[Rfam]
RNA: Enterobacterial sRNA STnc550
Organism: Escherichia fergusonii
RNA sequence: UACAUCUCACUCCAGACCCGAUCCAUAACUCCAUUAAAUGCCAGGUAAACGUUUGCCUUUACACACCCUGAGCGCAACGUCAGGGUUGCGGCACGCCGGAAAAUACGACACGGAACGACAGGAAGGGGUCAAUGGCCGGUACGCUAUACUUGUAAGCGUGGAAUUUUGGCCGAUCUUGACCAAAAGGGGAAGUGCUAAAAACAGUUAUCACGCUAAAUGGCGGGAGAUUUUUAGCCAAAUGUAUGCAAAAAUGCGCUACAUCACUUUUUGUGUGGGAAUAAAAAGGAGAAAACUUGAUGAGCAAUGAUCUGAAAUACUCUUUAAUUACGACCUUAAUCGUCCUCGCUUUGAUCGUUGCGGGUGGUCUGACCGCAGCUCUGCACUGAUUU
Numbered sequence: 001u002a003c004a005u006c007u008c009a010c011u012c013c014a015g016a017c018c019c020g021a022u023c024c025a026u027a028a029c030u031c032c033a034u035u036a037a038a039u040g041c042c043a044g045g046u047a048a049a050c051g052u053u054u055g056c057c058u059u060u061a062c063a064c065a066c067c068c069u070g071a072g073c074g075c076a077a078c079g080u081c082a083g084g085g086u087u088g089c090g091g092c093a094c095g096c097c098g099g100a101a102a103a104u105a106c107g108a109c110a111c112g113g114a115a116c117g118a119c120a121g122g123a124a125g126g127g128g129u130c131a132a133u134g135g136c137c138g139g140u141a142c143g144c145u146a147u148a149c150u151u152g153u154a155a156g157c158g159u160g161g162a163a164u165u166u167u168g169g170c171c172g173a174u175c176u177u178g179a180c181c182a183a184a185a186g187g188g189g190a191a192g193u194g195c196u197a198a199a200a201a202c203a204g205u206u207a208u209c210a211c212g213c214u215a216a217a218u219g220g221c222g223g224g225a226g227a228u229u230u231u232u233a234g235c236c237a238a239a240u241g242u243a244u245g246c247a248a249a250a251a252u253g254c255g256c257u258a259c260a261u262c263a264c265u266u267u268u269u270g271u272g273u274g275g276g277a278a279u280a281a282a283a284a285g286g287a288g289a290a291a292a293c294u295u296g297a298u299g300a301g302c303a304a305u306g307a308u309c310u311g312a313a314a315u316a317c318u319c320u321u322u323a324a325u326u327a328c329g330a331c332c333u334u335a336a337u338c339g340u341c342c343u344c345g346c347u348u349u350g351a352u353c354g355u356u357g358c359g360g361g362u363g364g365u366c367u368g369a370c371c372g373c374a375g376c377u378c379u380g381c382a383c384u385g386a387u388u389u
Stems, first nucleotide, its partner, number of pairs: 015130005022028001030123003034118001040092003043058006074089005096113003142194004149161002170186001174182001237305001265284001267282001269280003